RNA: Fungal signal recognition particle RNA
RNA sequence: UGGCUGUAAUGGUCCAACGGCGAAGUCUCUCACCCGUAUCUCGCUCCUCCUUCCAACUCAACCCCGUCAGAUCCCCCCCGCUCGGCGCCCAGCCCGAACGUCGCGGUGGCUGCCCGCUCGCGCAGGCAACUCGCGACUGUCGGUAAAAGAUUUAUUGCAGCCCUAAGCACUGGAGAUGACCCUUGAGGGAGGAUUCACUCUGCAGAGACCUCUCCCCCGUCGCGUGGCGGGCUGGAUCACGACCGCGGGGGGCUUGGGUUGGAAGGGCGAGAUGGAGAAUGGCGACGCCUCUU
Numbered sequence: 001u002g003g004c005u006g007u008a009a010u011g012g013u014c015c016a017a018c019g020g021c022g023a024a025g026u027c028u029c030u031c032a033c034c035c036g037u038a039u040c041u042c043g044c045u046c047c048u049c050c051u052u053c054c055a056a057c058u059c060a061a062c063c064c065c066g067u068c069a070g071a072u073c074c075c076c077c078c079c080g081c082u083c084g085g086c087g088c089c090c091a092g093c094c095c096g097a098a099c100g101u102c103g104c105g106g107u108g109g110c111u112g113c114c115c116g117c118u119c120g121c122g123c124a125g126g127c128a129a130c131u132c133g134c135g136a137c138u139g140u141c142g143g144u145a146a147a148a149g150a151u152u153u154a155u156u157g158c159a160g161c162c163c164u165a166a167g168c169a170c171u172g173g174a175g176a177u178g179a180c181c182c183u184u185g186a187g188g189g190a191g192g193a194u195u196c197a198c199u200c201u202g203c204a205g206a207g208a209c210c211u212c213u214c215c216c217c218c219g220u221c222g223c224g225u226g227g228c229g230g231g232c233u234g235g236a237u238c239a240c241g242a243c244c245g246c247g248g249g250g251g252g253c254u255u256g257g258g259u260u261g262g263a264a265g266g267g268c269g270a271g272a273u274g275g276a277g278a279a280u281g282g283c284g285a286c287g288c289c290u291c292u293u
Stems, first nucleotide, its partner, number of pairs: 002014003019289004025283001027281001030278002033275001037274004042269003050265011076250005082245001084243001086241002089235008098225004103220004111145004115139002118136005124131002163167001172215005182207003189200003